[Rfam]
RNA sequence: AAAAGAAUACGGAAAACACCUCAUAUAUUUACUAAGGAUAUGGCUUAGAAGUCUCUACCUAGCACCGUAAAUGCUAGACUAUGGGGAAGAUGAGUCAUUGU
Numbered sequence: 001a002a003a004a005g006a007a008u009a010c011g012g013a014a015a016a017c018a019c020c021u022c023a024u025a026u027a028u029u030u031a032c033u034a035a036g037g038a039u040a041u042g043g044c045u046u047a048g049a050a051g052u053c054u055c056u057a058c059c060u061a062g063c064a065c066c067g068u069a070a071a072u073g074c075u076a077g078a079c080u081a082u083g084g085g086g087a088a089g090a091u092g093a094g095u096c097a098u099u100g101u
Stems, first nucleotide, its partner, number of pairs: 019086007029050002032048005059077006